This 142-nucleotide RNA from Flexivirga endophytica belongs to the Rfam family "c-di-AMP riboswitch aptamer (ydaO/yuaA leader)". The base pairs follow the family's consensus structure.

RNA sequence: UGGUCCCGGAGGCACAACGAGGAUGGGGAACCCAUUUCGGUCGCGACAGCGGCCUUGGGGUGAGAGCAGGCCAAAAACGGCUUGCCGGGCACCUGACAGCCCGACCCGACAGCUAACCCCGUAUGCGCACGUCAGGAGAGGA
Numbered sequence: 001u002g003g004u005c006c007c008g009g010a011g012g013c014a015c016a017a018c019g020a021g022g023a024u025g026g027g028g029a030a031c032c033c034a035u036u037u038c039g040g041u042c043g044c045g046a047c048a049g050c051g052g053c054c055u056u057g058g059g060g061u062g063a064g065a066g067c068a069g070g071c072c073a074a075a076a077a078c079g080g081c082u083u084g085c086c087g088g089g090c091a092c093c094u095g096a097c098a099g100c101c102c103g104a105c106c107c108g109a110c111a112g113c114u115a116a117c118c119c120c121g122u123a124u125g126c127g128c129a130c131g132u133c134a135g136g137a138g139a140g141g142a
Base pairs, nucleotide, nucleotide: 001020023122024121025120026119027118028117033057034056058107059106060105067084068083069082070081087102088101089100090099